Shown here is a 305-nucleotide RNA from Hafnia alvei, a member of the family "ryfA RNA". On this family, see Wassarman et al., Genes Dev 2001: "Identification of novel small RNAs using comparative genomics and microarrays". This family consists of a number of bacterial RNA genes of 305 bases in length. The ryfA RNA gene is present in E. coli, Shigella flexneri and Salmonella species where it is found between the ydaN and dbpA genes. The function of this RNA is unknown. Taxonomically the source falls in Hafnia alvei (Bacteria, Pseudomonadati, Pseudomonadota, Enterobacterales). A search with the family's covariance model found it, with a score of 201 bits.
RNA sequence: ACGGCUCUUUUCGCUGCCUUGCAAGCAGGCGCCGGAUGGAAGGAAAGGAAAUCCGCUGAUCGUUAAUACAAGCGCAUCACAGUGCUUGUUUUCACGGCAGGAUCUCCGGUGGUGUUGCUGUGAAGCGGUCUUUGCAUGGAUCGCACAAUGAAACGGUACGUUUGUAUCCUGCUUAUUGUUUCUGGCUCGUUACUAUCGCAGGGAAAGGGGAGUUGGAGUAUUUCCAAUAAUUCCGUCUCGGUAAUGGUUAACCUGUCUGGCAAGUCGCUAAAAUGAAAAAACCGCCCGAAAGGGCGGUUUUUUUA
Numbered sequence: 001a002c003g004g005c006u007c008u009u010u011u012c013g014c015u016g017c018c019u020u021g022c023a024a025g026c027a028g029g030c031g032c033c034g035g036a037u038g039g040a041a042g043g044a045a046a047g048g049a050a051a052u053c054c055g056c057u058g059a060u061c062g063u064u065a066a067u068a069c070a071a072g073c074g075c076a077u078c079a080c081a082g083u084g085c086u087u088g089u090u091u092u093c094a095c096g097g098c099a100g101g102a103u104c105u106c107c108g109g110u111g112g113u114g115u116u117g118c119u120g121u122g123a124a125g126c127g128g129u130c131u132u133u134g135c136a137u138g139g140a141u142c143g144c145a146c147a148a149u150g151a152a153a154c155g156g157u158a159c160g161u162u163u164g165u166a167u168c169c170u171g172c173u174u175a176u177u178g179u180u181u182c183u184g185g186c187u188c189g190u191u192a193c194u195a196u197c198g199c200a201g202g203g204a205a206a207g208g209g210g211a212g213u214u215g216g217a218g219u220a221u222u223u224c225c226a227a228u229a230a231u232u233c234c235g236u237c238u239c240g241g242u243a244a245u246g247g248u249u250a251a252c253c254u255g256u257c258u259g260g261c262a263a264g265u266c267g268c269u270a271a272a273a274u275g276a277a278a279a280a281a282c283c284g285c286c287c288g289a290a291a292g293g294g295c296g297g298u299u300u301u302u303u304u305a
Base pairs, nucleotide, nucleotide: 007047008046009045010044011043012042014028015027016026017025030035060185061184069088070087071086072085073084074083075082091124092123093122094121095120096119097118098117099116102113103112104111125144126143127142128141129140130139131138145179146178147177148176149175150174151173153170155168156167157166158165159164187270190263191262193260194259215225216224217223218222240253241252242251277303278302279300280299281298282297283296284295285294286293287292